[Rfam]
RNA: c-di-GMP-I riboswitch aptamer
Organism: Pseudocoprococcus catus
RNA sequence: UAUUUAUAGGGGCAGAGCUGUCGAAAGGCAGUGACGCAAAGCCAAAGGGACUAAGGUGUUAGAAACUAUGUCAGCCGGUUGCGAUA
Numbered sequence: 001u002a003u004u005u006a007u008a009g010g011g012g013c014a015g016a017g018c019u020g021u022c023g024a025a026a027g028g029c030a031g032u033g034a035c036g037c038a039a040a041g042c043c044a045a046a047g048g049g050a051c052u053a054a055g056g057u058g059u060u061a062g063a064a065a066c067u068a069u070g071u072c073a074g075c076c077g078g079u080u081g082c083g084a085u086a
Stems, first nucleotide, its partner, number of pairs: 012037002017032006040080004047076002049072003056066002059063001